Small nucleolar RNA SNORA58: a 120-nucleotide RNA sequence from Erinaceus europaeus. NCBI's taxonomy places the organism under Eukaryota, Opisthokonta, Euteleostomi, Laurasiatheria, Erinaceus. The family has 20 seed sequences and 471 matches in Rfam 15.1. Clan: SNORA44 clan. ACA52 is a member of the H/ACA class of snoRNA that guide the sites of modification of uridines to pseudouridines. On this family, see Huttenhofer et al., EMBO J 2001: "RNomics: an experimental approach that identifies 201 candidates for novel, small, non-messenger RNAs in mouse".
[Rfam]
RNA sequence: UGGCAUAUCUGUGGCUUUGUUCAUUGCCAGAAAGGGGUGACGUAUGCAAGAGCAUUUUGGAGUUUAUGCCAGCUAGCCAGCUUACUUUGUAGCUGGAUAAAUUGCAGUACUCCAACAUUA
Numbered sequence: 001u002g003g004c005a006u007a008u009c010u011g012u013g014g015c016u017u018u019g020u021u022c023a024u025u026g027c028c029a030g031a032a033a034g035g036g037g038u039g040a041c042g043u044a045u046g047c048a049a050g051a052g053c054a055u056u057u058u059g060g061a062g063u064u065u066a067u068g069c070c071a072g073c074u075a076g077c078c079a080g081c082u083u084a085c086u087u088u089g090u091a092g093c094u095g096g097a098u099a100a101a102u103u104g105c106a107g108u109a110c111u112c113c114a115a116c117a118u119u120a
Stems, first nucleotide, its partner, number of pairs: 003047006012029002059113004064109001067106003077096005
Dot-bracket structure: ..((((((...((..............))............))))))...........((((.(..(((.......(((((..........))))).......)))..))))).......